Rfam assigns this 90-nucleotide RNA sequence from Pan troglodytes to the family "NoRC associated RNA, pRNA".

Nucleotides: 090
Base pairs, nucleotide, nucleotide: 004087006085008084011082018079021076027069028068029067030065033062034061035060036059037058038057
Number, partner (000 for none) and nucleotide at each position: 001000c002000a003000a004087u005000g006085g007000u008084g009000a010000c011082g012000u013000u014000u015000u016000u017000g018079g019000a020000c021076a022000c023000a024000g025000a026000u027069g028068u029067c030065c031000g032000u033062g034061u035060c036059g037058u038057g039000a040000a041000u042000u043000u044000c045000c046000u047000g048000g049000g050000c051000c052000a053000g054000c055000a056000g057038c058037g059036u060035g061034g062033u063000c064000g065030g066000u067029g068028a069027c070000u071000c072000a073000a074000c075000c076021u077000c078000a079018u080000g081000c082011c083000c084008c085006c086000g087004g088000u089000g090000g